[Rfam]
RNA sequence: UAACGGUUCAGGUGAGAGUCUUCACUUUGAUGAAGCGCCGACGGAGCAACGACCCCGGAAUCUCUCAGGCAAAAGAAUCCUGAACCUUUG
Numbered sequence: 001u002a003a004c005g006g007u008u009c010a011g012g013u014g015a016g017a018g019u020c021u022u023c024a025c026u027u028u029g030a031u032g033a034a035g036c037g038c039c040g041a042c043g044g045a046g047c048a049a050c051g052a053c054c055c056c057g058g059a060a061u062c063u064c065u066c067a068g069g070c071a072a073a074a075g076a077a078u079c080c081u082g083a084a085c086c087u088u089u090g
Base pairs, nucleotide, nucleotide: 006085007084008083009082010081011080012079020035021034022033023032037070038069039068040066041065044064045063046062050057051056

Annotation
Rfam assigns this 90-nucleotide RNA from Alcaligenes sp. EGD-AK7 to the family "Glycine riboswitch aptamer". Taxonomically the source falls in Alcaligenes (Bacteria, Pseudomonadota, Burkholderiales, Alcaligenaceae). The pairing is the family consensus, mapped onto this sequence. The match comes from Rfam's covariance-model search (64 bits).